[Rfam]
RNA sequence: UAUCGAUGCUGAAUUAGUGAUUGGCGUCGAUCAUUUUGACAAAACUUAGGAGUUAGCAUGUCACUAACUGUUGAACAGAAAGCUGAGAUUUUAAAAGAAUUUGGCCAAGGCGAG
Numbered sequence: 001u002a003u004c005g006a007u008g009c010u011g012a013a014u015u016a017g018u019g020a021u022u023g024g025c026g027u028c029g030a031u032c033a034u035u036u037u038g039a040c041a042a043a044a045c046u047u048a049g050g051a052g053u054u055a056g057c058a059u060g061u062c063a064c065u066a067a068c069u070g071u072u073g074a075a076c077a078g079a080a081a082g083c084u085g086a087g088a089u090u091u092u093a094a095a096a097g098a099a100u101u102u103g104g105c106c107a108a109g110g111c112g113a114g
Base pairs, nucleotide, nucleotide: 007026008025009024010023011022012021047067049065050064052062